[Rfam]
This 135-nucleotide RNA from Sphenodon punctatus belongs to the Rfam family "Small nucleolar RNA SNORA28". The family's consensus secondary structure was predicted with RNAfold. ACA28 is a member of the H/ACA class of snoRNA that guide the sites of modification of uridines to pseudouridines. The family has 26 seed sequences and 922 matches in Rfam 15.1. The family is grouped with related families in Rfam's "SNORA28 clan". Gene Ontology terms of the family: nucleolus and RNA processing. NCBI's taxonomy places the organism under Eukaryota, Opisthokonta, Deuterostomia, Sarcopterygii, Sphenodon.

RNA sequence: AAGCAACACUCUGUGGCAGAUAUCUAGUUGCCUGCCUCAAUUUCAGCUUGCUAUAGUAAAAAAAAAAAAAAAAAGUCUGAUCUAUUCCCGUGGUCUCUGUUGUGUGAGGUCAUUUGUUAUACAGACUAGAACAGC
Numbered sequence: 001a002a003g004c005a006a007c008a009c010u011c012u013g014u015g016g017c018a019g020a021u022a023u024c025u026a027g028u029u030g031c032c033u034g035c036c037u038c039a040a041u042u043u044c045a046g047c048u049u050g051c052u053a054u055a056g057u058a059a060a061a062a063a064a065a066a067a068a069a070a071a072a073a074a075g076u077c078u079g080a081u082c083u084a085u086u087c088c089c090g091u092g093g094u095c096u097c098u099g100u101u102g103u104g105u106g107a108g109g110u111c112a113u114u115u116g117u118u119a120u121a122c123a124g125a126c127u128a129g130a131a132c133a134g135c
Base pairs, nucleotide, nucleotide: 009046010045012039013038015036017034018033019032021030022029074127075126076125077124078123079122083121084120085119088116090114096109097108098107